[Rfam]
The family of this 86-nucleotide RNA sequence is "Glycine riboswitch aptamer". The pairing is the family consensus, mapped onto this sequence.
RNA sequence: ACGGGCAGUAUGGGAGAACUGGAUCACCAGUGCCGAAGGAGCAACCGCCCCGGUAAACUCUCAGGCAACAGGACCGUGCUGCGAAG
Numbered sequence: 001a002c003g004g005g006c007a008g009u010a011u012g013g014g015a016g017a018a019c020u021g022g023a024u025c026a027c028c029a030g031u032g033c034c035g036a037a038g039g040a041g042c043a044a045c046c047g048c049c050c051c052g053g054u055a056a057a058c059u060c061u062c063a064g065g066c067a068a069c070a071g072g073a074c075c076g077u078g079c080u081g082c083g084a085a086g
Stems, first nucleotide, its partner, number of pairs: 006081008019030004032066003035062002039060003045053002